[Rfam]
RNA sequence: UUGACGGUGAAGUCCCAGGUGCCCCGGCUUCCGGCGAGGAUCUGCUCACCGAAGUAGGCGCCGUCGGCGAGGGUGCCGAGGAUGGUCUGGUCGCCGUAUUCGCCGGCGCCGAGUUUGUUCACCUUGCCGUGUGCGAUGAGGUAGACGUGGUCGGCGGACUGCCCGGCCUCGACGAGGACGUCACCGGGCUCGUACUCGCGCUGUUCGAAGCGGGAGGCGAGUCCGGCGAGGACGGCGUGGUCGGUGUAGCCGCGCAGCAGCGGGAGCUCGCAGAGCUCCUCGGGAAUGACGCGGACCUCGGCGCCGACGUUGGUGAAGGUGACGCGGCCGUCGCCGACGGCGUAGCUGAGGCGGCGGUUGACGCGGUAUACGCCGCCCUCGGUCUGGAUCCACGGCAGCAUCUUGAGCAGCCAGCGGGAGGAGAUGCCCUGCAUCUGCGGGACGGACUUGGUGGUGGUGGCCAGGUUGCGGGCGGCGGCGGUGCUCAGGCUCAGCUGGGCGCGUUCG
Numbered sequence: 001u002u003g004a005c006g007g008u009g010a011a012g013u014c015c016c017a018g019g020u021g022c023c024c025c026g027g028c029u030u031c032c033g034g035c036g037a038g039g040a041u042c043u044g045c046u047c048a049c050c051g052a053a054g055u056a057g058g059c060g061c062c063g064u065c066g067g068c069g070a071g072g073g074u075g076c077c078g079a080g081g082a083u084g085g086u087c088u089g090g091u092c093g094c095c096g097u098a099u100u101c102g103c104c105g106g107c108g109c110c111g112a113g114u115u116u117g118u119u120c121a122c123c124u125u126g127c128c129g130u131g132u133g134c135g136a137u138g139a140g141g142u143a144g145a146c147g148u149g150g151u152c153g154g155c156g157g158a159c160u161g162c163c164c165g166g167c168c169u170c171g172a173c174g175a176g177g178a179c180g181u182c183a184c185c186g187g188g189c190u191c192g193u194a195c196u197c198g199c200g201c202u203g204u205u206c207g208a209a210g211c212g213g214g215a216g217g218c219g220a221g222u223c224c225g226g227c228g229a230g231g232a233c234g235g236c237g238u239g240g241u242c243g244g245u246g247u248a249g250c251c252g253c254g255c256a257g258c259a260g261c262g263g264g265a266g267c268u269c270g271c272a273g274a275g276c277u278c279c280u281c282g283g284g285a286a287u288g289a290c291g292c293g294g295a296c297c298u299c300g301g302c303g304c305c306g307a308c309g310u311u312g313g314u315g316a317a318g319g320u321g322a323c324g325c326g327g328c329c330g331u332c333g334c335c336g337a338c339g340g341c342g343u344a345g346c347u348g349a350g351g352c353g354g355c356g357g358u359u360g361a362c363g364c365g366g367u368a369u370a371c372g373c374c375g376c377c378c379u380c381g382g383u384c385u386g387g388a389u390c391c392a393c394g395g396c397a398g399c400a401u402c403u404u405g406a407g408c409a410g411c412c413a414g415c416g417g418g419a420g421g422a423g424a425u426g427c428c429c430u431g432c433a434u435c436u437g438c439g440g441g442a443c444g445g446a447c448u449u450g451g452u453g454g455u456g457g458u459g460g461c462c463a464g465g466u467u468g469c470g471g472g473c474g475g476c477g478g479c480g481g482u483g484c485u486c487a488g489g490c491u492c493a494g495c496u497g498g499g500c501g502c503g504u505u506c507g
Stems, first nucleotide, its partner, number of pairs: 006390003011385002014382002018328001021325002025321002028318001030316002035313001037311002041307002047303001049301004054233002059228005065111004075103001077102004082097005117222004122217002127212001130209001131206001133204003138199001140197001143196002150191001154189002160183001162177001166173001234296001236294001240290004245285001250282001252280001254278001256277003260271003329342004351379001353377005363369001391431002394428004399423001401421001403418002407415001437476002440473001443470002446467001447465006477506002481502002484499005
Annotation:
This 507-nucleotide sequence from Phytomonospora endophytica belongs to the Rfam family "Saccharopolyspora sRNA 350". For this family Rfam cites "Prediction and characterization of small non-coding RNAs related to secondary metabolites in Saccharopolyspora erythraea" (Liu et al., PLoS One, 2013). The family has 2 seed sequences and 1,170 matches in Rfam 15.1.